About this RNA:
This 28-nucleotide RNA from Robiginitalea biformata belongs to the Rfam family "L19-Flavobacteria ribosomal protein leader".

[Rfam]
RNA sequence: CAACCUCUGACGAGGUACGUGCAUGUUG
Numbered sequence: 001c002a003a004c005c006u007c008u009g010a011c012g013a014g015g016u017a018c019g020u021g022c023a024u025g026u027u028g
Base pairs, nucleotide, nucleotide: 001028002027003026004025008023010020011019012018
It is one of the family's seed sequences. The literature on the family includes a 2020 paper in BMC Microbiol by Eckert and Weinberg, "Discovery of 20 novel ribosomal leader candidates in bacteria and archaea". NCBI's taxonomy places the organism under Bacteria, Pseudomonadati, Flavobacteriales, Flavobacteriaceae, Robiginitalea biformata.